Rfam assigns this 97-nucleotide part of an RNA from Haloplanus salinarum to the family "Archaeal large subunit ribosomal RNA". A reference for the family is Cannone et al. (2002), "The comparative RNA web (CRW) site: an online database of comparative sequence and structure information for ribosomal, intron, and other RNAs", BMC Bioinformatics. A search with the family's covariance model found it, with a score of 2792 bits. The base pairs follow the family's consensus structure, which is taken from published work.
RNA sequence: GACGGGGCAUACAAGGUCCUUCGACAAACGAACACGGGGCGACCCGUUAGUAGGACUCGAAGGAAGCCGAUGUUCCGUCGUGCGUUUUGAAAAACGA
Numbered sequence: 001g002a003c004g005g006g007g008c009a010u011a012c013a014a015g016g017u018c019c020u021u022c023g024a025c026a027a028a029c030g031a032a033c034a035c036g037g038g039g040c041g042a043c044c045c046g047u048u049a050g051u052a053g054g055a056c057u058c059g060a061a062g063g064a065a066g067c068c069g070a071u072g073u074u075c076c077g078u079c080g081u082g083c084g085u086u087u088u089g090a091a092a093a094a095c096g097a
Stems, first nucleotide, its partner, number of pairs: 001079010015068002019062006029053001034047005083096003